[Rfam]
A member of the RNA family "SAM (S-adenosyl methionine) riboswitch aptamer" from Cellulomonas sp. B6, 113 nucleotides long.
RNA sequence: GGUCACGAGCUCCGACGCGAAGCCCCGGCUGGUCGGACGGCAACCCUCCCGCGCGGCGGGGUGCCCCGGGUGAGGACCAGGCGCACGGCGCACGCCGCGCGCAACGACCGCGA
Number, nucleotide and partner (000 for none) at each position: 001g078002g077003u076004c075005a000006c000007g000008a000009g038010c000011u037012c036013c035014g034015a033016c032017g000018c000019g000020a000021a030022g029023c000024c000025c000026c000027g000028g000029c022030u021031g000032g016033u015034c014035g013036g012037a011038c009039g065040g064041c063042a000043a000044c061045c060046c059047u000048c056049c055050c000051g000052c000053g000054c000055g049056g048057c000058g000059g046060g045061g044062u000063g041064c040065c039066c000067c000068g000069g000070g000071u000072g000073a000074g000075g004076a003077c002078c001079a000080g000081g102082c101083g100084c099085a000086c097087g096088g095089c094090g000091c000092a000093c000094g089095c088096c087097g086098c000099g084100c083101g082102c081103a000104a000105c000106g000107a000108c000109c000110g000111c000112g000113a000
Taxonomically the source falls in Cellulomonas (Bacteria, Bacillati, Actinomycetes, Micrococcales). A search with the family's covariance model found it, with a score of 81 bits.